RNA sequence: ACAACAAAAACAAGAAACGAAGCGGCAAACCAAUAAAAACAAGACGUAACGGCUCUGACAUAACAAGAACAAAACGGACAGAGGCGCAGCUAACAGAUUUUUUUGGAGUGGAUAAGCUUUACAGGGACCUUUCGGUGAAAGGCCUCGCGACCGGACAGAGAACAAUAAAACUACCUUCAGGUAGCUUCCGAACCGGUGGGAUCACGAUGUUGUGAAGACAGGUGAUUAAAGCGAGUCAGCGCUCAAAAAAAUACGUUUGCUCUUGACCCCGGAUGGGGGUCGCUCAACAACGCUGUAAAGGGACUGGCCAUCAACAACAAUAACAGGCCGCCCUACAACAAUAAAAAGAGCAGGUAAAACACAUUGGAGGAGAGCUACGGCUCUCCUUUGUGUUUUUCGUCCCCAGGAAGCUGCAGCGUAG
Numbered sequence: 001a002c003a004a005c006a007a008a009a010a011c012a013a014g015a016a017a018c019g020a021a022g023c024g025g026c027a028a029a030c031c032a033a034u035a036a037a038a039a040c041a042a043g044a045c046g047u048a049a050c051g052g053c054u055c056u057g058a059c060a061u062a063a064c065a066a067g068a069a070c071a072a073a074a075c076g077g078a079c080a081g082a083g084g085c086g087c088a089g090c091u092a093a094c095a096g097a098u099u100u101u102u103u104u105g106g107a108g109u110g111g112a113u114a115a116g117c118u119u120u121a122c123a124g125g126g127a128c129c130u131u132u133c134g135g136u137g138a139a140a141g142g143c144c145u146c147g148c149g150a151c152c153g154g155a156c157a158g159a160g161a162a163c164a165a166u167a168a169a170a171c172u173a174c175c176u177u178c179a180g181g182u183a184g185c186u187u188c189c190g191a192a193c194c195g196g197u198g199g200g201a202u203c204a205c206g207a208u209g210u211u212g213u214g215a216a217g218a219c220a221g222g223u224g225a226u227u228a229a230a231g232c233g234a235g236u237c238a239g240c241g242c243u244c245a246a247a248a249a250a251a252u253a254c255g256u257u258u259g260c261u262c263u264u265g266a267c268c269c270c271g272g273a274u275g276g277g278g279g280u281c282g283c284u285c286a287a288c289a290a291c292g293c294u295g296u297a298a299a300g301g302g303a304c305u306g307g308c309c310a311u312c313a314a315c316a317a318c319a320a321u322a323a324c325a326g327g328c329c330g331c332c333c334u335a336c337a338a339c340a341a342u343a344a345a346a347a348g349a350g351c352a353g354g355u356a357a358a359a360c361a362c363a364u365u366g367g368a369g370g371a372g373a374g375c376u377a378c379g380g381c382u383c384u385c386c387u388u389u390g391u392g393u394u395u396u397u398c399g400u401c402c403c404c405a406g407g408a409a410g411c412u413g414c415a416g417c418g419u420a421g
Base pairs, nucleotide, nucleotide: 050086051085053083054082055081056080101248102247103246104245105244116240117239148199150197151196152195153194154193171184172183173182174181175180266280267279268278269277270276300403301402302401303400304399305330306329307328308327350393351392352391367388368387369386370385371384372383373382374381375380
About this RNA:
Shown here is a 421-nucleotide RNA sequence from Pseudomonas amygdali, a member of the family "Pseudomonas sRNA CrcZ". Gene Ontology term of the family: carbon catabolite repression of transcription. Lineage of the source: Bacteria > Pseudomonadati > Gammaproteobacteria > Pseudomonas syringae group genomosp. 2 > Pseudomonas amygdali pv. lachrymans. A reference for the family is Livny et al. (2006), "Identification of 17 Pseudomonas aeruginosa sRNAs and prediction of sRNA-encoding genes in 10 diverse pathogens using the bioinformatic tool sRNAPredict2", Nucleic Acids Res. Rfam classes the family as a small RNA.